[Rfam]
RNA sequence: GUCUUCGAGGAGCGUUGCGACGGAGUCGCGGUGUAGCACCGCAGGUUCCGCCAGGCUCGAAGGCGCUCAAUCCGGCCCUCGCGCGUGUCUGGCAGUUUGCACCGCGCGGCCGCAUCGAAAAAACGGCGCUCACGUCUU
Numbered sequence: 001g002u003c004u005u006c007g008a009g010g011a012g013c014g015u016u017g018c019g020a021c022g023g024a025g026u027c028g029c030g031g032u033g034u035a036g037c038a039c040c041g042c043a044g045g046u047u048c049c050g051c052c053a054g055g056c057u058c059g060a061a062g063g064c065g066c067u068c069a070a071u072c073c074g075g076c077c078c079u080c081g082c083g084c085g086u087g088u089c090u091g092g093c094a095g096u097u098u099g100c101a102c103c104g105c106g107c108g109g110c111c112g113c114a115u116c117g118a119a120a121a122a123a124c125g126g127c128g129c130u131c132a133c134g135u136c137u138u
Stems, first nucleotide, its partner, number of pairs: 002063007021050006